A member of the RNA family "Eukaryotic large subunit ribosomal RNA" from Globodera rostochiensis, 417 nucleotides of a longer RNA.
[Rfam]
RNA sequence: GACCGGUUGCUAUGAUAGUAAUCCUGCUUAGUACGAGAGGAACCGCAGGUUCAGACAUUUGGUUCAUGUGCUUGGUCGAUAGACCAAUGGUGCGAAGCUACCAUCUGAGGGAUUAUGACUGAACGCCUCUAAGUCAGAAUCCCGCCUAGUCACGAUAGCAAUAUCCUUGCUCCCCGGUGUCGGGAGGCACUUCUUAUGCACCGCUUGCGGUGCAGCCCAAAUGCCCCAGCAUCUGGCCCGAUGUGUGUGCUUAAUUGCUCGCACAUUGCCAAAGCCGUAGCACUCGUGUGCCAUGGUGGAACGUCGGGGCGCAAAAUCACUUGUAUACGACUUGACUACUGGUCAGGGGGUUGUUAGCAGUAGAGCAGCUUUUACACUGCGAUCUGUUGAGACUUAGCCCUUGAUCGGAUGAUUUGU
Numbered sequence: 001g002a003c004c005g006g007u008u009g010c011u012a013u014g015a016u017a018g019u020a021a022u023c024c025u026g027c028u029u030a031g032u033a034c035g036a037g038a039g040g041a042a043c044c045g046c047a048g049g050u051u052c053a054g055a056c057a058u059u060u061g062g063u064u065c066a067u068g069u070g071c072u073u074g075g076u077c078g079a080u081a082g083a084c085c086a087a088u089g090g091u092g093c094g095a096a097g098c099u100a101c102c103a104u105c106u107g108a109g110g111g112a113u114u115a116u117g118a119c120u121g122a123a124c125g126c127c128u129c130u131a132a133g134u135c136a137g138a139a140u141c142c143c144g145c146c147u148a149g150u151c152a153c154g155a156u157a158g159c160a161a162u163a164u165c166c167u168u169g170c171u172c173c174c175c176g177g178u179g180u181c182g183g184g185a186g187g188c189a190c191u192u193c194u195u196a197u198g199c200a201c202c203g204c205u206u207g208c209g210g211u212g213c214a215g216c217c218c219a220a221a222u223g224c225c226c227c228a229g230c231a232u233c234u235g236g237c238c239c240g241a242u243g244u245g246u247g248u249g250c251u252u253a254a255u256u257g258c259u260c261g262c263a264c265a266u267u268g269c270c271a272a273a274g275c276c277g278u279a280g281c282a283c284u285c286g287u288g289u290g291c292c293a294u295g296g297u298g299g300a301a302c303g304u305c306g307g308g309g310c311g312c313a314a315a316a317u318c319a320c321u322u323g324u325a326u327a328c329g330a331c332u333u334g335a336c337u338a339c340u341g342g343u344c345a346g347g348g349g350g351u352u353g354u355u356a357g358c359a360g361u362a363g364a365g366c367a368g369c370u371u372u373u374a375c376a377c378u379g380c381g382a383u384c385u386g387u388u389g390a391g392a393c394u395u396a397g398c399c400c401u402u403g404a405u406c407g408g409a410u411g412a413u414u415u416g417u
Base pairs, nucleotide, nucleotide: 006162007161008160009159010158011157012156013155016148017147018146021051023049024048025047026046027045052107053106054105055104060100061099062098067094068093069092070091071090072087073086074085075084076083077082109143110142111141116136117135118134119133120132172309173308174307175306176305177304178303179302180301314415315414316413317412318411320334323331340407341406342405343404344403345402346400347399348398350393351392357387358386359385360384362383365380366379367378368377
Dot-bracket structure: .....((((((((..(((..(.(((((.................))))).)((((....(((....(((((((((((....))))))..)))))...)))...)))).(((....(((((...........)))))....)))..)))......)))))))).........(((((((((........................................................................................................................)))))))))....(((((.(..(.......)..).....(((((((((.((.....((((.(..((((........))))..)))))....))....))).))))))...)))))..